[Rfam]
RNA sequence: CACGGUUGGUGGCGUACUUCCUGAUCUUCGGGCAGUGUCACGCGUCUGCGAAAAGCAAACAGAUACCCGGCCCGCUCCCAAGCGGGCUUUUUUUU
Numbered sequence: 001c002a003c004g005g006u007u008g009g010u011g012g013c014g015u016a017c018u019u020c021c022u023g024a025u026c027u028u029c030g031g032g033c034a035g036u037g038u039c040a041c042g043c044g045u046c047u048g049c050g051a052a053a054a055g056c057a058a059a060c061a062g063a064u065a066c067c068c069g070g071c072c073c074g075c076u077c078c079c080a081a082g083c084g085g086g087c088u089u090u091u092u093u094u095u
Stems, first nucleotide, its partner, number of pairs: 009041004015037004020032004069088007076080001